Shown here is a 189-nucleotide RNA sequence from Molossus molossus, a member of the family "Beta-globin co-transcriptional cleavage ribozyme".
Rfam 15.1 lists 76 matches to the family in 74 species.
Lineage of the source: Eukaryota > Opisthokonta > Teleostomi > Chiroptera > Molossus.
The family's consensus secondary structure is taken from published work.
For this family Rfam cites "Autocatalytic RNA cleavage in the human beta-globin pre-mRNA promotes transcription termination" (Teixeira et al., Nature, 2004).
It scores 68 bits against the family's covariance model.
Transcription termination of RNA polymerase II transcripts is proposed to occur by a two stage process. The first stage involves pre-termination cleavage (PTC) of the nascent transcript downstream of the poly(A) site. This process is also referred to as co-transcriptional cleavage (CoTC). The CoTC process in the human beta-globin gene has been shown to involve an RNA self-cleaving activity located in the 3' flanking region of the beta-globin gene.
RNA sequence: GCAAAGAGUUACCAUCAGCAGCACCCUCAUGUCAUUUUGUCAUUCAAUAGCCACUUAGACGGAUGCUGGAUUCUUGAAGUAAAAUAUGAAUUCGAAAUGGUUCUUCUCUCCUCUUGCACCUCAAUUAUGAAUCCAGUUUGGAAGAUAUUGAAAGUAAGGCAUCUGACAAGUGACCGUAAACGAGUGUAU
Numbered sequence: 001g002c003a004a005a006g007a008g009u010u011a012c013c014a015u016c017a018g019c020a021g022c023a024c025c026c027u028c029a030u031g032u033c034a035u036u037u038u039g040u041c042a043u044u045c046a047a048u049a050g051c052c053a054c055u056u057a058g059a060c061g062g063a064u065g066c067u068g069g070a071u072u073c074u075u076g077a078a079g080u081a082a083a084a085u086a087u088g089a090a091u092u093c094g095a096a097a098u099g100g101u102u103c104u105u106c107u108c109u110c111c112u113c114u115u116g117c118a119c120c121u122c123a124a125u126u127a128u129g130a131a132u133c134c135a136g137u138u139u140g141g142a143a144g145a146u147a148u149u150g151a152a153a154g155u156a157a158g159g160c161a162u163c164u165g166a167c168a169a170g171u172g173a174c175c176g177u178a179a180a181c182g183a184g185u186g187u188a189u
Stems, first nucleotide, its partner, number of pairs: 024186001026184002032179001034177001036176001039174006048061001051058001063162005069121001072118001075116003088113002094106003125152002129148001131146003